[Rfam]
RNA sequence: GGGAAUAUGUGCUCCUUUAGUAUUUCUCCAGUAGGUUUCCUCAAGGAGAAAGCCCCC
Numbered sequence: 001g002g003g004a005a006u007a008u009g010u011g012c013u014c015c016u017u018u019a020g021u022a023u024u025u026c027u028c029c030a031g032u033a034g035g036u037u038u039c040c041u042c043a044a045g046g047a048g049a050a051a052g053c054c055c056c057c
Stems, first nucleotide, its partner, number of pairs: 034054005040048003
Annotation:
This 57-nucleotide RNA from Coregonus sp. 'balchen' belongs to the Rfam family "U7 small nuclear RNA". For this family Rfam cites "3' end processing of mouse histone pre-mRNA: evidence for additional base-pairing between U7 snRNA and pre-mRNA" (Spycher et al., Nucleic Acids Res, 1994). A search with the family's covariance model found it, with a score of 37 bits. The organism belongs to Coregonus, within Eukaryota. Animal histone pre-mRNAs are spliced by a different mechanism than nuclear pre-mRNAs and self-splicing introns.